[Rfam]
RNA sequence: GAUGAAACAAAUCCGAAUAUCUUUAUGGUAGUGGGGGAACCAAUUUCAGGGGUGAAUCUUAGUAUUUUAAGAGGGGCAGCUUGGGAGCCCUAAUCCGUCAGCUAAUCCCAUAGGAGAAUACCAAGCGAAUGA
Numbered sequence: 001g002a003u004g005a006a007a008c009a010a011a012u013c014c015g016a017a018u019a020u021c022u023u024u025a026u027g028g029u030a031g032u033g034g035g036g037g038a039a040c041c042a043a044u045u046u047c048a049g050g051g052g053u054g055a056a057u058c059u060u061a062g063u064a065u066u067u068u069a070a071g072a073g074g075g076g077c078a079g080c081u082u083g084g085g086a087g088c089c090c091u092a093a094u095c096c097g098u099c100a101g102c103u104a105a106u107c108c109c110a111u112a113g114g115a116g117a118a119u120a121c122c123a124a125g126c127g128a129a130u131g132a
Stems, first nucleotide, its partner, number of pairs: 012115003018030003031111006041049001050096003058071004074090004
RNA: c-di-AMP riboswitch aptamer (ydaO/yuaA leader)
Organism: Lachnoclostridium phytofermentans